[Rfam]
RNA: Group II catalytic intron D1-D4-2
Organism: Trichonephila clavata
RNA sequence: GAGGGUAGGUCCCUCGGAGCCGGUUUACAAGAGCAGGCUUCAAACAGCCAUAAGCUGCUUUGGUAAAGAGCCAUGGUAGUGAGCAUUAUGGAAAAGGCGCAAUUAUGCGUCAUG
Numbered sequence: 001g002a003g004g005g006u007a008g009g010u011c012c013c014u015c016g017g018a019g020c021c022g023g024u025u026u027a028c029a030a031g032a033g034c035a036g037g038c039u040u041c042a043a044a045c046a047g048c049c050a051u052a053a054g055c056u057g058c059u060u061u062g063g064u065a066a067a068g069a070g071c072c073a074u075g076g077u078a079g080u081g082a083g084c085a086u087u088a089u090g091g092a093a094a095a096g097g098c099g100c101a102a103u104u105a106u107g108c109g110u111c112a113u114g
Stems, first nucleotide, its partner, number of pairs: 001015005016041006023034004045114002048091006054080002057077003061073004096111006